[Rfam]
RNA sequence: GUCAAUUACGCCGCCCCUAAAGGAGUGGGCUUGUAAAAGCCAAGUUGACCAGACCACUUGGAGAGGGUUUAAACCAAGUAGACGAUAUUUUGGAAAGAGAUACCAUUAGAUACCGCCUCAGUCUGAUGCUCUAUCGUGGCACUGUAAACAGUCCUAAAGCGUUAUGGACAGUCAACCACAUCUAAAGCCUUAAUAUCUGGUCGAGAGGAAGUCGGA
Numbered sequence: 001g002u003c004a005a006u007u008a009c010g011c012c013g014c015c016c017c018u019a020a021a022g023g024a025g026u027g028g029g030c031u032u033g034u035a036a037a038a039g040c041c042a043a044g045u046u047g048a049c050c051a052g053a054c055c056a057c058u059u060g061g062a063g064a065g066g067g068u069u070u071a072a073a074c075c076a077a078g079u080a081g082a083c084g085a086u087a088u089u090u091u092g093g094a095a096a097g098a099g100a101u102a103c104c105a106u107u108a109g110a111u112a113c114c115g116c117c118u119c120a121g122u123c124u125g126a127u128g129c130u131c132u133a134u135c136g137u138g139g140c141a142c143u144g145u146a147a148a149c150a151g152u153c154c155u156a157a158a159g160c161g162u163u164a165u166g167g168a169c170a171g172u173c174a175a176c177c178a179c180a181u182c183u184a185a186a187g188c189c190u191u192a193a194u195a196u197c198u199g200g201u202c203g204a205g206a207g208g209a210a211g212u213c214g215g216a
Base pairs, nucleotide, nucleotide: 001049002048003047004046005045006044007043011028013026014025016023017022030039031038032037052202053201054200055199056198057078058077059076060075061074084197085196086195087194088193089192092189093188100134101133104128105127106126107125108124109123110122111121112212113211116208117207118206119205136179137178138177139176143174144173148172149171151169152168153167154166157163